[Rfam]
RNA: MIR5643 microRNA precursor family
Organism: Arabidopsis thaliana
RNA sequence: GUGUAGUCAAAGUUCGUAUGAGUCUUUGUCUUUGUAUCCUCUAAGAAGGAUACAAUACUUAGGCUUUUGAGAUCUGGUUGCGA
Numbered sequence: 001g002u003g004u005a006g007u008c009a010a011a012g013u014u015c016g017u018a019u020g021a022g023u024c025u026u027u028g029u030c031u032u033u034g035u036a037u038c039c040u041c042u043a044a045g046a047a048g049g050a051u052a053c054a055a056u057a058c059u060u061a062g063g064c065u066u067u068u069g070a071g072a073u074c075u076g077g078u079u080g081c082g083a
Base pairs, nucleotide, nucleotide: 002082003081004080005079006078007077008076009075012073013072014071020066021065022064023063024062025061028058029057032055033054034053035052036051037050038049039048040047
Dot-bracket structure: .((((((((..(((.....((((((..((..(((((((((......))))))))).))..))))))....))).)))))))).